[Rfam]
RNA sequence: GUCUCACCGAAAAUGGCACUGAAAGAAUUCACGGGGUACAUAUUUACACAUCACCCGUAGUUCUUCUGUGCCGUGUUCGGUGGCCA
Numbered sequence: 001g002u003c004u005c006a007c008c009g010a011a012a013a014u015g016g017c018a019c020u021g022a023a024a025g026a027a028u029u030c031a032c033g034g035g036g037u038a039c040a041u042a043u044u045u046a047c048a049c050a051u052c053a054c055c056c057g058u059a060g061u062u063c064u065u066c067u068g069u070g071c072c073g074u075g076u077u078c079g080g081u082g083g084c085c086a
Stems, first nucleotide, its partner, number of pairs: 004083007013074006021066002025062002029060001031058004